[Rfam]
RNA sequence: UUCUUAUCAAGAGCGGCAGAGGGACUGGCCCGAUGAAGCCCGGCAACCCCAUUACCUUUAUUAAAAGGGAGGAAGGUGCCAAAUCCAGCAGGAUAGUAUAAGCCUGAGAGAUAAGAA
Numbered sequence: 001u002u003c004u005u006a007u008c009a010a011g012a013g014c015g016g017c018a019g020a021g022g023g024a025c026u027g028g029c030c031c032g033a034u035g036a037a038g039c040c041c042g043g044c045a046a047c048c049c050c051a052u053u054a055c056c057u058u059u060a061u062u063a064a065a066a067g068g069g070a071g072g073a074a075g076g077u078g079c080c081a082a083a084u085c086c087a088g089c090a091g092g093a094u095a096g097u098a099u100a101a102g103c104c105u106g107a108g109a110g111a112u113a114a115g116a117a
Base pairs, nucleotide, nucleotide: 001117002116003115004114005113006112007111008110013041015040016039017038021031022030023029025088026087027086028085042080043079044078045077047076048075049072050071052069084109089106090105091104092103094101

Source information:
SAM riboswitch aptamer (S box leader): a 117-nucleotide sequence from Aneurinibacillus migulanus. The base pairs follow the family's consensus structure, which is taken from published work. The match comes from Rfam's covariance-model search (92 bits).